[Rfam]
The record is a 127-nucleotide sequence from Nannospalax galili, which matches "Small nucleolar RNA SNORA40" in Rfam. Gene Ontology terms of the family: RNA processing and nucleolus. It is annotated as an H/ACA-box small nucleolar RNA. The family has 28 seed sequences and 2,550 matches in Rfam 15.1. It scores 86 bits against the family's covariance model. NCBI's taxonomy places the organism under Eukaryota, Sarcopterygii, Euarchontoglires, Rodentia, Nannospalax.
RNA sequence: UGCAAUUACUUUGUGUUUGUUCAACUGGGGAUAAAGGCAUGAAAGACAGGUGCAAAAAUAAAUCCUCUUUUCCAACCCAGAACUCAACUGUUCAGUAUGAGUUUUGAUACAUGUAAGAAGGAAUAUG
Numbered sequence: 001u002g003c004a005a006u007u008a009c010u011u012u013g014u015g016u017u018u019g020u021u022c023a024a025c026u027g028g029g030g031a032u033a034a035a036g037g038c039a040u041g042a043a044a045g046a047c048a049g050g051u052g053c054a055a056a057a058a059u060a061a062a063u064c065c066u067c068u069u070u071u072c073c074a075a076c077c078c079a080g081a082a083c084u085c086a087a088c089u090g091u092u093c094a095g096u097a098u099g100a101g102u103u104u105u106g107a108u109a110c111a112u113g114u115a116a117g118a119a120g121g122a123a124u125a126u127g
Base pairs, nucleotide, nucleotide: 001054002053003052004051006049007048010044013038014037016035017034018033019032020031025029062124063123065121066120068118069117070116071115078106079105080104081103082102083101084100085099086098